[Rfam]
A member of the RNA family "c-di-GMP-I-GGC riboswitch aptamer" from Bacillus sp. MUM 13, 88 nucleotides long.
Gene Ontology term of the family: cyclic-di-GMP binding.
RNA sequence: GCAGAAAAAGGCAAACCUAUUGAAAGAUAGGGACGCAAAGUCACGGGUCUAAGGGUGGAAUAAUGCUAUGGCGGCCGGUCUGCCUGAA
Numbered sequence: 001g002c003a004g005a006a007a008a009a010g011g012c013a014a015a016c017c018u019a020u021u022g023a024a025a026g027a028u029a030g031g032g033a034c035g036c037a038a039a040g041u042c043a044c045g046g047g048u049c050u051a052a053g054g055g056u057g058g059a060a061u062a063a064u065g066c067u068a069u070g071g072c073g074g075c076c077g078g079u080c081u082g083c084c085u086g087a088a
Base pairs, nucleotide, nucleotide: 003085004084011036012035016031017030018029019028020027021026034074039081040080042078044077045076046075047072048071049070
About this RNA:
Its Rfam clan is "c-di-GMP_I riboswitch clan". It scores 64 bits against the family's covariance model.